[Rfam]
RNA sequence: CCCAUGUAUCAAGACAAGGGCCGACGCCCUUACCAACCUGCCCCCCGGGCAAGGUGGACGCGAAAGCGGAUACGGCCUCAUCAUUGAGGCAACCAACCGGGAGUGA
Numbered sequence: 001c002c003c004a005u006g007u008a009u010c011a012a013g014a015c016a017a018g019g020g021c022c023g024a025c026g027c028c029c030u031u032a033c034c035a036a037c038c039u040g041c042c043c044c045c046c047g048g049g050c051a052a053g054g055u056g057g058a059c060g061c062g063a064a065a066g067c068g069g070a071u072a073c074g075g076c077c078u079c080a081u082c083a084u085u086g087a088g089g090c091a092a093c094c095a096a097c098c099g100g101g102a103g104u105g106a
Stems, first nucleotide, its partner, number of pairs: 006073005017030005033057002037054003040050003045101002075090006
The record is a 106-nucleotide sequence from Asticcacaulis sp. AC402, which matches "SAM-I/IV (S-adenosyl methionine) riboswitch aptamer" in Rfam. The source organism's lineage runs through Bacteria, Pseudomonadota, Caulobacterales, Caulobacteraceae and Asticcacaulis. On this family, see Weinberg et al., RNA 2008: "The aptamer core of SAM-IV riboswitches mimics the ligand-binding site of SAM-I riboswitches".